[Rfam]
RNA sequence: AAAUGUAUAGGUGAUGGAGUUCGCCAUUUAAAUGCUUGAAGCUGAUGACUCCUACAAGAUA
Number, nucleotide and partner (000 for none) at each position: 001a000002a000003a000004u000005g000006u000007a000008u000009a000010g025011g024012u023013g022014a000015u000016g052017g051018a050019g049020u048021u047022c013023g012024c011025c010026a000027u000028u000029u000030a000031a000032a000033u000034g042035c041036u040037u000038g000039a000040a036041g035042c034043u000044g000045a000046u000047g021048a020049c019050u018051c017052c016053u000054a000055c000056a000057a000058g000059a000060u000061a000
The family of this 61-nucleotide RNA sequence from Clostridium manihotivorum is "Fluoride riboswitch aptamer (crcB RNA motif)". NCBI's taxonomy places the organism under Bacteria, Bacillati, Bacillota, Clostridiaceae, Clostridium. A search with the family's covariance model found it, with a score of 52 bits.